[Rfam]
RNA: chrB-a RNA
RNA sequence: CUCAUGGGGGUUCUGCGAUCCCCCCACGAGGCGACAUGCCCAAGUAUCGCGUCCCGUUUCUUUCACGAGGGCGCAUCCAUG
Numbered sequence: 001c002u003c004a005u006g007g008g009g010g011u012u013c014u015g016c017g018a019u020c021c022c023c024c025c026a027c028g029a030g031g032c033g034a035c036a037u038g039c040c041c042a043a044g045u046a047u048c049g050c051g052u053c054c055c056g057u058u059u060c061u062u063u064c065a066c067g068a069g070g071g072c073g074c075a076u077c078c079a080u081g
Stems, first nucleotide, its partner, number of pairs: 005026006049074006
Dot-bracket structure: ....((((((..........))))))......................((((((..............)))))).......